[Rfam]
RNA: S15-Flavobacteria ribosomal protein leader
Nucleotides: 068
Stems, first nucleotide, its partner, number of pairs: 014032005
Number, partner (000 for none) and nucleotide at each position: 001000u002000a003000u004000a005000u006000u007000u008000g009000c010000c011000g012000c013000u014032c015031u016030a017029u018028u019000u020000u021000a022000a023000g024000u025000a026000a027000u028018a029017g030016u031015a032014g033000a034000u035000c036000a037000u038000a039000c040000a041000u042000a043000a044000u045000a046000a047000u048000c049000a050000u051000u052000u053000a054000a055000a056000u057000a058000a059000u060000a061000u062000u063000g064000g065000a066000a067000u068000g